Shown here is a 322-nucleotide RNA sequence from Zunongwangia atlantica, a member of the family "Bacterial RNase P class A". Pairs were carried over by alignment from the consensus structure, which is taken from published work. The match comes from Rfam's covariance-model search (208 bits).
[Rfam]
Nucleotides: 322
Base pairs, nucleotide, nucleotide: 002317003316004315005314006313007312008311009310010309011307012269013268014267015266016265018262019261021043022042023041024040025039026038027037048305049304050303052302053301054300055299056298057168058167059166060165064202065201066200067199069164070163071162072161073160074088075087076086077085078084089103090101091100092099093098104159105158109157110156111153112152126141127140128139129138130137172224173223174222175221183214184213185212186211187210193207194206195205196204197203231250232249233248234247235246236245237244238243
Number, partner (000 for none) and nucleotide at each position: 001000c002317a003316a004315g005314c006313a007312g008311g009310u010309c011307g012269g013268c014267c015266c016265u017000a018262u019261c020000g021043c022042u023041a024040a025039g026038c027037u028000c029000a030000u031000a032000u033000u034000u035000g036000u037027g038026g039025u040024u041023u042022a043021g044000a045000g046000g047000a048305a049304a050303g051000u052302c053301c054300g055299g056298a057168c058167a059166c060165c061000a062000u063000a064202g065201a066200g067199c068000a069164g070163c071162a072161u073160a074088g075087u076086g077085g078084g079000u080000a081000a082000c083000g084078c085077c086076c087075a088074c089103c090101g091100g092099u093098c094000g095000u096000g097000a098093g099092g100091c101090c102000a103089g104159g105158a106000c107000a108000a109157g110156u111153g112152c113000a114000a115000c116000a117000g118000a119000a120000a121000g122000a123000a124000u125000g126141u127140a128139c129138a130137g131000g132000u133000a134000a135000u136000g137130c138129u139128g140127u141126a142000g143000u144000g145000a146000a147000a148000c149000c150000a151000g152112g153111u154000a155000a156110a157109c158105u159104c160073u161072a162071u163070g164069c165060g166059g167058u168057g169000c170000a171000a172224u173223g174222c175221c176000a177000u178000g179000u180000a181000a182000a183214c184213c185212a186211a187210u188000a189000u190000u191000a192000u193207c194206a195205a196204a197203u198000u199067g200066c201065u202064c203197g204196u205195u206194u207193g208000u209000c210187g211186u212185u213184g214183g215000a216000g217000g218000g219000u220000a221175g222174g223173c224172a225000g226000c227000u228000a229000a230000a231250g232249g233248g234247c235246u236245u237244u238243g239000g240000u241000a242000a243238c244237a245236a246235a247234g248233u249232u250231c251000u252000c253000a254000g255000a256000u257000a258000a259000a260000u261019g262018a263000c264000a265016a266015g267014g268013g269012c270000a271000u272000c273000c274000u275000g276000a277000u278000g279000u280000a281000u282000u283000u284000c285000a286000g287000g288000g289000u290000g291000a292000a293000c294000a295000g296000a297000a298056u299055c300054c301053g302052g303050c304049u305048u306000a307011c308000a309010g310009a311008c312007c313006u314005g315004c316003u317002u318000u319000u320000u321000u322000a